RNA sequence: GGCACAGGAUGUUAGCCUAAGUUCGUCGCAUCCAUGCGACAACGGCUAACUGACCUGCAUCAUGCUGG
Numbered sequence: 001g002g003c004a005c006a007g008g009a010u011g012u013u014a015g016c017c018u019a020a021g022u023u024c025g026u027c028g029c030a031u032c033c034a035u036g037c038g039a040c041a042a043c044g045g046c047u048a049a050c051u052g053a054c055c056u057g058c059a060u061c062a063u064g065c066u067g068g
Base pairs, nucleotide, nucleotide: 011050012049013048014047015046016045017044025040026039027038028037029036054068055067057065058064
The family of this 68-nucleotide RNA sequence from Solibacillus sp. R5-41 is "Bacillaceae-1 RNA".